RNA sequence: AGGUGCCAUCGUUCGCUGAGGCUCCUUCGCGGAUACAGGCUGGCGAUCGUAAACGUCGAGAGACGCCACCGAUCAGGACAGGUCUCCCCGGAUUAAGGGGUGAUCCCGACCAGCUCCCCGACCCCGGGGUUACGCCGUGAAGUGCCAAAGGUCUUACGAGGAGCGGUACCC
Numbered sequence: 001a002g003g004u005g006c007c008a009u010c011g012u013u014c015g016c017u018g019a020g021g022c023u024c025c026u027u028c029g030c031g032g033a034u035a036c037a038g039g040c041u042g043g044c045g046a047u048c049g050u051a052a053a054c055g056u057c058g059a060g061a062g063a064c065g066c067c068a069c070c071g072a073u074c075a076g077g078a079c080a081g082g083u084c085u086c087c088c089c090g091g092a093u094u095a096a097g098g099g100g101u102g103a104u105c106c107c108g109a110c111c112a113g114c115u116c117c118c119c120g121a122c123c124c125c126g127g128g129g130u131u132a133c134g135c136c137g138u139g140a141a142g143u144g145c146c147a148a149a150g151g152u153c154u155u156a157c158g159a160g161g162a163g164c165g166g167u168a169c170c171c
Base pairs, nucleotide, nucleotide: 005167006166007165009163011157012156013096015152016151017150020146021145022144025142026141027140028139029138030137031136032135039114040113041112042111043110045074046073047072048071049070054065055064056063057062081105082104083103084102087099088098089097116128117127118126